[Rfam]
RNA sequence: UGCCCACCCCUCUAAUCCUUGCUCUCUGGGUGCUAGUGCUGUCUCCAUGCAAUGCACCUGGGCAAGGAUUCAGAGAGGGUGGGC
Numbered sequence: 001u002g003c004c005c006a007c008c009c010c011u012c013u014a015a016u017c018c019u020u021g022c023u024c025u026c027u028g029g030g031u032g033c034u035a036g037u038g039c040u041g042u043c044u045c046c047a048u049g050c051a052a053u054g055c056a057c058c059u060g061g062g063c064a065a066g067g068a069u070u071c072a073g074a075g076a077g078g079g080u081g082g083g084c
Stems, first nucleotide, its partner, number of pairs: 014070007025062008037051003
The record is an 84-nucleotide RNA from Bos taurus, which matches "mir-500 microRNA precursor family" in Rfam. NCBI's taxonomy places the organism under Eukaryota, Opisthokonta, Deuterostomia, Sarcopterygii, Bos. Gene Ontology terms of the family: miRNA-mediated post-transcriptional gene silencing and RISC complex. The sequence is in the family's curated seed alignment.